Shown here is an 88-nucleotide sequence from Umezawaea tangerina, a member of the family "Glycine riboswitch aptamer". The pairing is the family consensus, mapped onto this sequence. The organism belongs to Umezawaea, within Bacteria.
RNA sequence: CGAUGGUGUGCGGAAGAGUCCCCCUCGGGGGCGCCGAAGGAGCAACUCCUCCCCGGAAUCUCUCAGGCACAGGUACCGCGCACCGCAG
Numbered sequence: 001c002g003a004u005g006g007u008g009u010g011c012g013g014a015a016g017a018g019u020c021c022c023c024c025u026c027g028g029g030g031g032c033g034c035c036g037a038a039g040g041a042g043c044a045a046c047u048c049c050u051c052c053c054c055g056g057a058a059u060c061u062c063u064c065a066g067g068c069a070c071a072g073g074u075a076c077c078g079c080g081c082a083c084c085g086c087a088g
Base pairs, nucleotide, nucleotide: 006083007082008081009080010079011078012077013076020031021030022029023028033068034067035066036064037063040062041061042060046056047055